RNA sequence: UCUUCCGAAGUUUCUCUCAGGAUAGCUGGAGUUUAAUUAGUUUUAUCAGGUAAAGCGAAUGAUUAGAGGCAUCGGGGGCGCAAGGCCCUCGACCUAUUCUCAAACUUUAAAUGGGUAAGAUCCAGUGGUUACUUUAUUGAACUGCUGGGAUUAAUAUGAACUCCAAGUGGGCCAUUUUUGGUAAGCAGAACUGGCGCUGCGGGAUGAACCGAACGCCGGGUUAAGGCGCCCGAUGCCGACGCUCAUCAGAGCCCAGAAAAGGUGUUGGUUGAUCUAGACAGCAGGACGGUGGCCAUGGAAGUCGGAACCCGCUAAGGAGUGUGUAACAACUCACCUGCCGAAUGAACCAGCCCUGAAAAUGGAUGGCGCUGAAGCGGGCUACCGAUACCAGGCCAUUGCUACGAUUAAGUACUUAAUACACAACUUUGAGUAGCAAUGAGUAGGAAGACGUGGAGGUCGUGACGAAGCGUUCGGCGUAAGCCCGCGUGGAACGGCCUCUAGUGCAGAU
Dot-bracket structure: ((((((....(.(((....))).)..(((((((.......(((((((.....(((....(((..(.(((..((((((.(.....).))))))))).)..)))..)).).....))))))).(((((((((.........)))))))))..........))))))).....((((.(((((.....))))).))))....(((......)))...(((.(.(...((........(....(((.................(((.(((((((.((.......(((((.(((...((.........))...)))(...)(...((......)).).)))))...)).))))))))))...................)))..)..))...).).)))(((((((((...........................)))))))))....))))))(.((((((((((......((....(((....)))...))...))))))))))..).....
A member of the RNA family "Eukaryotic large subunit ribosomal RNA" from Podilymbus podiceps, 508 nucleotides of a longer RNA. For this family Rfam cites "Crystal structure of the ribosome at 5.5 A resolution" (Yusupov et al., Science, 2001).